[Rfam]
RNA sequence: AAACUUACUUGGCGUCGGGUCCAGCGUGAUCAGUAAUGCCCUGGCCCCGGGUGGAGGCUCACCACUGCACUCCGGUUUGUUGAAGCCCGCGACUCGUCUAAAUAGACGUGCUCGGACGUGUACUUUUUGUUAGUGGGGGGGUCUUCGGGCCAUCCCUG
Numbered sequence: 001a002a003a004c005u006u007a008c009u010u011g012g013c014g015u016c017g018g019g020u021c022c023a024g025c026g027u028g029a030u031c032a033g034u035a036a037u038g039c040c041c042u043g044g045c046c047c048c049g050g051g052u053g054g055a056g057g058c059u060c061a062c063c064a065c066u067g068c069a070c071u072c073c074g075g076u077u078u079g080u081u082g083a084a085g086c087c088c089g090c091g092a093c094u095c096g097u098c099u100a101a102a103u104a105g106a107c108g109u110g111c112u113c114g115g116a117c118g119u120g121u122a123c124u125u126u127u128u129g130u131u132a133g134u135g136g137g138g139g140g141g142u143c144u145u146c147g148g149g150c151c152a153u154c155c156c157u158g
Stems, first nucleotide, its partner, number of pairs: 012119004017047005023042002026039002049088004056081003061076003090114003093110001095108001097106002135157005140151004
U1 spliceosomal RNA: a 158-nucleotide sequence from Protopolystoma xenopodis. The organism belongs to Protopolystoma, within Eukaryota. Rfam's curators write: U1 is a small nuclear RNA (snRNA) component of the spliceosome (involved in pre-mRNA splicing). The family is grouped with related families in Rfam's "U1 clan".